[Rfam]
RNA sequence: GGACAAAACUCUGAAAAAGCUGUUGUCAAGACAGUACCAAAGGUGAAAGAUAUUUAAUAUCGAAACUCUCAGGUAAAAAAACAGAGGAUAUGUG
Numbered sequence: 001g002g003a004c005a006a007a008a009c010u011c012u013g014a015a016a017a018a019g020c021u022g023u024u025g026u027c028a029a030g031a032c033a034g035u036a037c038c039a040a041a042g043g044u045g046a047a048a049g050a051u052a053u054u055u056a057a058u059a060u061c062g063a064a065a066c067u068c069u070c071a072g073g074u075a076a077a078a079a080a081a082c083a084g085a086g087g088a089u090a091u092g093u094g
Stems, first nucleotide, its partner, number of pairs: 006089001009086005020034004036074003040069001043068001045066001049061002

Source information:
The record is a 94-nucleotide sequence from Clostridium ljungdahlii, which matches "Glycine riboswitch aptamer" in Rfam. Lineage of the source: Bacteria > Clostridia > Eubacteriales > Clostridiaceae > Clostridium. Pairs were carried over by alignment from the consensus structure. The literature on the family includes a 2004 paper in Science by Mandal et al., "A glycine-dependent riboswitch that uses cooperative binding to control gene expression". Its Rfam clan is "Glycine riboswitch clan".